[Rfam]
RNA: Lysine riboswitch aptamer
Organism: Ferrimonas marina
RNA sequence: GGGACCAGAAGAGGAGCGCCAACCAGGUACUCUGUUCGAGGUGAGCAAACACCGAUGACAACAGACGAUGGGGAUUGGCGCCGAGGCAGCGGGCCGUUUGGCUCGGAUCGCUGCCGGUUGUAGAGGCUGAAUCCUCGCAACUGUCACCCUUUGGUGGAGAGCUUCUGGUCUU
Number, nucleotide and partner (000 for none) at each position: 001g000002g000003g000004a000005c000006c167007a166008g165009a164010a163011g162012a000013g000014g000015a000016g081017c080018g079019c078020c077021a076022a075023c000024c073025a000026g000027g000028u000029a000030c000031u065032c064033u063034g062035u061036u060037c000038g000039a000040g000041g000042u000043g000044a000045g000046c000047a000048a000049a000050c000051a000052c000053c000054g000055a000056u000057g000058a000059c000060a036061a035062c034063a033064g032065a031066c000067g000068a000069u000070g000071g000072g000073g024074a000075u022076u021077g020078g019079c018080g017081c016082c000083g000084a000085g115086g114087c113088a112089g111090c110091g109092g108093g000094c106095c105096g104097u000098u000099u000100g000101g000102c000103u000104c096105g095106g094107a000108u092109c091110g090111c089112u088113g087114c086115c085116g142117g141118u140119u139120g138121u137122a000123g136124a135125g134126g133127c000128u000129g000130a000131a000132u000133c126134c125135u124136c123137g121138c120139a119140a118141c117142u116143g000144u157145c156146a155147c154148c153149c000150u000151u000152u000153g148154g147155u146156g145157g144158a000159g000160a000161g000162c011163u010164u009165c008166u007167g006168g000169u000170c000171u000172u000